[Rfam]
RNA sequence: UCUUUGAGGACACCCACCAUCACCGACUUUCGGCCCGGCGUCCGCGCCGGGCUUUU
Dot-bracket structure: ................................(((((((......)))))))....
Numbered sequence: 001u002c003u004u005u006g007a008g009g010a011c012a013c014c015c016a017c018c019a020u021c022a023c024c025g026a027c028u029u030u031c032g033g034c035c036c037g038g039c040g041u042c043c044g045c046g047c048c049g050g051g052c053u054u055u056u
Stems, first nucleotide, its partner, number of pairs: 033052007

Caulobacter sRNA CC0196: a 56-nucleotide sequence from Brevundimonas sp. AAP58. By type it is a small RNA. It scores 43 bits against the family's covariance model.